Small nucleolar RNA SNORD35: a 101-nucleotide RNA from Anolis carolinensis. Lineage of the source: Eukaryota > Gnathostomata > Squamata > Unidentata > Anolis.

[Rfam]
RNA sequence: UGGUGAUGAUGCCUCAAUUCACGAUGGUCUGCUUAGCCCUUCCUUUCACAGAGAGCGAGGGCUGCUGAAAAUGCCAUUCUGGCCAUUGCUGAGCCAUGGCC
Numbered sequence: 001u002g003g004u005g006a007u008g009a010u011g012c013c014u015c016a017a018u019u020c021a022c023g024a025u026g027g028u029c030u031g032c033u034u035a036g037c038c039c040u041u042c043c044u045u046u047c048a049c050a051g052a053g054a055g056c057g058a059g060g061g062c063u064g065c066u067g068a069a070a071a072u073g074c075c076a077u078u079c080u081g082g083c084c085a086u087u088g089c090u091g092a093g094c095c096a097u098g099g100c101c
Stems, first nucleotide, its partner, number of pairs: 001096004
The base pairs follow the family's consensus structure, which was predicted with PFOLD.
U35 is a C/D box snoRNA located in intron 6 of ribosomal protein L13A and intron 3 of ribosomal protein S11 in humans and at homologous positions in mouse and chicken ribosomal protein genes. U35 guides the methylation of 2'-O-ribose sites in 28S rRNA.